Nucleotides: 094
Stems, first nucleotide, its partner, number of pairs: 012039005019034002025054005060081007
Number, partner (000 for none) and nucleotide at each position: 001000g002000a003000u004000c005000a006000u007000a008000u009000u010000c011000a012039c013038u014037c015036c016035c017000c018000g019034u020033a021000a022000a023000c024000c025054g026053a027052g028051a029050c030000c031000u032000a033020u034019a035016g036015g037014g038013a039012g040000g041000a042000u043000a044000a045000a046000u047000u048000a049000c050029g051028u052027c053026u054025c055000u056000c057000a058000u059000a060081c061080c062079c063078a064077c065076a066075g067000u068000g069000a070000a071000g072000g073000g074000a075066u076065u077064g078063u079062g080061g081060g082000a083000a084000u085000a086000u087000a088000a089000g090000u091000u092000u093000c094000g

Source information
The record is a 94-nucleotide RNA sequence, which matches "PhotoRC-II RNA" in Rfam. By type it is a cis-regulatory element.